[Rfam]
RNA: mir-219 microRNA precursor family
Organism: Hermetia illucens
RNA sequence: UUUAGCUCUGAUUGUCCAAACGCAAUUCUUGUUCAUGUUUCAAUUCAAGGAUUGUGACUGGACAUCGUGGCUCGA
Numbered sequence: 001u002u003u004a005g006c007u008c009u010g011a012u013u014g015u016c017c018a019a020a021c022g023c024a025a026u027u028c029u030u031g032u033u034c035a036u037g038u039u040u041c042a043a044u045u046c047a048a049g050g051a052u053u054g055u056g057a058c059u060g061g062a063c064a065u066c067g068u069g070g071c072u073c074g075a
Stems, first nucleotide, its partner, number of pairs: 002074001004072004009067004014063005021056011